[Rfam]
RNA sequence: AUACUUACCUGGUAGGGAAGGUACCACCAUGGUGCCAUGAUCACAAAAGUGGUUUUCCCAGGGCGAGACUUGUCCAUUGUACUGUGGAUGUGCUGACCCCUGCAAUUUCUCCAAAUGUGGGAAACUGGAAUGCAUAGUUGGUGGUAGCAGGGGACUGUCGUGCUCUCUCCUG
Numbered sequence: 001a002u003a004c005u006u007a008c009c010u011g012g013u014a015g016g017g018a019a020g021g022u023a024c025c026a027c028c029a030u031g032g033u034g035c036c037a038u039g040a041u042c043a044c045a046a047a048a049g050u051g052g053u054u055u056u057c058c059c060a061g062g063g064c065g066a067g068a069c070u071u072g073u074c075c076a077u078u079g080u081a082c083u084g085u086g087g088a089u090g091u092g093c094u095g096a097c098c099c100c101u102g103c104a105a106u107u108u109c110u111c112c113a114a115a116u117g118u119g120g121g122a123a124a125c126u127g128g129a130a131u132g133c134a135u136a137g138u139u140g141g142u143g144g145u146a147g148c149a150g151g152g153g154a155c156u157g158u159c160g161u162g163c164u165c166u167c168u169c170c171u172g
Stems, first nucleotide, its partner, number of pairs: 012133003016059002019056003023053003037050002060101004065097001067094001069092001071090005103128001105126001106124003110120002149171006157163001
RNA: U1 spliceosomal RNA